[Rfam]
RNA: Small Cajal body specific RNA 4
RNA sequence: CAUGGAGGACUAGCAAGACUGAGUCUGGAGUGAGACUCAGGUGACAGUGACCUCCUAAAAGAAAAGUGAUGGAGAGAGCAGUCCUACUUCCAGAAGAGCACAGGGCUCACUGUGCCAUCUGACACUG
Numbered sequence: 001c002a003u004g005g006a007g008g009a010c011u012a013g014c015a016a017g018a019c020u021g022a023g024u025c026u027g028g029a030g031u032g033a034g035a036c037u038c039a040g041g042u043g044a045c046a047g048u049g050a051c052c053u054c055c056u057a058a059a060a061g062a063a064a065a066g067u068g069a070u071g072g073a074g075a076g077a078g079c080a081g082u083c084c085u086a087c088u089u090c091c092a093g094a095a096g097a098g099c100a101c102a103g104g105g106c107u108c109a110c111u112g113u114g115c116c117a118u119c120u121g122a123c124a125c126u127g
Stems, first nucleotide, its partner, number of pairs: 003057001004055005017042001019040001021038006065120002068118001077111002080107006089100001091098001